[Rfam]
RNA: mir-338 microRNA precursor family
RNA sequence: UCCCCAACAAUAUCCUGGUGCUGAGUGAUAACACGGCAACUCCAGCAUCAGUGAUUUUGUUGAAGA
Numbered sequence: 001u002c003c004c005c006a007a008c009a010a011u012a013u014c015c016u017g018g019u020g021c022u023g024a025g026u027g028a029u030a031a032c033a034c035g036g037c038a039a040c041u042c043c044a045g046c047a048u049c050a051g052u053g054a055u056u057u058u059g060u061u062g063a064a065g066a
Stems, first nucleotide, its partner, number of pairs: 006061005012055003015051009